Record summary
The family of this 86-nucleotide sequence from Planobispora rosea is "L31-Actinobacteria ribosomal protein leader". Rfam classes the family as a cis-regulatory leader. NCBI's taxonomy places the organism under Bacteria, Bacillati, Streptosporangiales, Streptosporangiaceae, Planobispora.
RNA sequence: GCGGUUCCGGUUCCCGCCCGCGCGCACUCCGGUGUGCCUCAGCGCGCACGCCACUCUCGGCGAGACGCAGUGGCGACCCGGCGACC
Numbered sequence: 001g002c003g004g005u006u007c008c009g010g011u012u013c014c015c016g017c018c019c020g021c022g023c024g025c026a027c028u029c030c031g032g033u034g035u036g037c038c039u040c041a042g043c044g045c046g047c048a049c050g051c052c053a054c055u056c057u058c059g060g061c062g063a064g065a066c067g068c069a070g071u072g073g074c075g076a077c078c079c080g081g082c083g084a085c086c
Base pairs, nucleotide, nucleotide: 003086004085005084007081008080009079010078015075016074017073018072022068023067